[Rfam]
RNA: mir-5928 microRNA precursor family
RNA sequence: GGCACAAACCGGUAGUAGAGUAAUUUAGUAGGGUUAGUCAAUUCUGCUAAUUUACCCUACUUCGAAUUUGGGCCC
Numbered sequence: 001g002g003c004a005c006a007a008a009c010c011g012g013u014a015g016u017a018g019a020g021u022a023a024u025u026u027a028g029u030a031g032g033g034u035u036a037g038u039c040a041a042u043u044c045u046g047c048u049a050a051u052u053u054a055c056c057c058u059a060c061u062u063c064g065a066a067u068u069u070g071g072g073c074c075c
Stems, first nucleotide, its partner, number of pairs: 001074003005070004012063001014061005020055004025050006032043004